Overview: The record is a 107-nucleotide sequence from Calypte anna, which matches "Small nucleolar RNA SNORD124" in Rfam. Its family is annotated with RNA processing and nucleolus in the Gene Ontology. A reference for the family is Yang et al. (2006), "snoSeeker: an advanced computational package for screening of guide and orphan snoRNA genes in the human genome", Nucleic Acids Res. The family's consensus secondary structure was predicted with WAR. The source organism's lineage runs through Eukaryota, Chordata, Strisores, Apodiformes and Calypte. A search with the family's covariance model found it, with a score of 40 bits. The family has 18 seed sequences and 191 matches in Rfam 15.1.
Nucleotides: 107
Base pairs, nucleotide, nucleotide: 009098010097011096012095013094014093015092
Number, partner (000 for none) and nucleotide at each position: 001000u002000c003000c004000c005000u006000c007000c008000c009098u010097g011096g012095a013094a014093g015092g016000g017000g018000u019000g020000a021000u022000g023000u024000g025000u026000c027000a028000g029000c030000a031000c032000a033000g034000a035000g036000u037000c038000c039000c040000a041000g042000a043000u044000a045000a046000g047000g048000a049000c050000u051000c052000u053000g054000a055000c056000u057000g058000c059000g060000u061000u062000u063000g064000c065000g066000u067000g068000u069000g070000a071000u072000g073000a074000a075000a076000c077000u078000u079000c080000u081000g082000a083000g084000u085000g086000c087000u088000c089000u090000g091000a092015c093014c094013u095012u096011c097010c098009a099000u100000g101000g102000c103000g104000u105000g106000g107000g